[Rfam]
RNA sequence: AAAGUUUCCUACGCCACAGCCAUGGACUGGUUUAUUGCCGUAUGUUUCGCCUUC
Numbered sequence: 001a002a003a004g005u006u007u008c009c010u011a012c013g014c015c016a017c018a019g020c021c022a023u024g025g026a027c028u029g030g031u032u033u034a035u036u037g038c039c040g041u042a043u044g045u046u047u048c049g050c051c052u053u054c
Stems, first nucleotide, its partner, number of pairs: 002053002008049001011046001013045002016041002019038002022035005
The family of this 54-nucleotide RNA from Oncorhynchus kisutch is "Editing element of GABA-3 exon 9". Lineage of the source: Eukaryota > Metazoa > Bilateria > Salmoninae > Oncorhynchus. The family's consensus secondary structure is taken from published work. The family has 52 seed sequences and 4,208 matches in Rfam 15.1. The literature on the family includes a 2007 paper in RNA by Ohlson et al., "Editing modifies the GABA(A) receptor subunit alpha3".